[Rfam]
RNA sequence: GGUGAUAGAGGGAAUGAAGUUCUCCCUUAGUUAUAAAACUAAAACCUCUAAUCUUAGCUGAUGACUUCUGCAUUUAG
Numbered sequence: 001g002g003u004g005a006u007a008g009a010g011g012g013a014a015u016g017a018a019g020u021u022c023u024c025c026c027u028u029a030g031u032u033a034u035a036a037a038a039c040u041a042a043a044a045c046c047u048c049u050a051a052u053c054u055u056a057g058c059u060g061a062u063g064a065c066u067u068c069u070g071c072a073u074u075u076a077g
Base pairs, nucleotide, nucleotide: 010026011025012024013023016068017067018066019065020064021063048057049056050055

The record is a 77-nucleotide RNA from Lachnospiraceae bacterium 2_1_46FAA, which matches "Fluoride riboswitch aptamer (crcB RNA motif)" in Rfam.
Rfam links the family to the GO terms positive regulation of gene expression and response to fluoride.
Lineage of the source: Bacteria > Bacillati > Bacillota > Lachnospirales > Lachnospiraceae.